[Rfam]
RNA: Small nucleolar RNA Z278
Organism: Nyssa sinensis
RNA sequence: GCCAGUGAUGAUUCAAUCCAUGUUACAUGAGGUGCUGUGGAGCCAAGCCCCUGUUUUUACAGGGAGAACCUACUUGGUGAAGCUGCAUUUCACAUGAUAUUACUGGGUUUCACUGAGGC
Numbered sequence: 001g002c003c004a005g006u007g008a009u010g011a012u013u014c015a016a017u018c019c020a021u022g023u024u025a026c027a028u029g030a031g032g033u034g035c036u037g038u039g040g041a042g043c044c045a046a047g048c049c050c051c052u053g054u055u056u057u058u059a060c061a062g063g064g065a066g067a068a069c070c071u072a073c074u075u076g077g078u079g080a081a082g083c084u085g086c087a088u089u090u091c092a093c094a095u096g097a098u099a100u101u102a103c104u105g106g107g108u109u110u111c112a113c114u115g116a117g118g119c
Stems, first nucleotide, its partner, number of pairs: 001119003049064005